[Rfam]
RNA sequence: AAAUCGCUGAGAACUGUUUGAAUCAAAUAGUGGAGUGAUUCAAAAGAUUCUCAAA
Numbered sequence: 001a002a003a004u005c006g007c008u009g010a011g012a013a014c015u016g017u018u019u020g021a022a023u024c025a026a027a028u029a030g031u032g033g034a035g036u037g038a039u040u041c042a043a044a045a046g047a048u049u050c051u052c053a054a055a
Base pairs, nucleotide, nucleotide: 008053009052010051011050012049013048015046017044018043019042020041021040022039023038024037025036
RNA: Plastid-ccsA-ndhD-1 3UTR RNA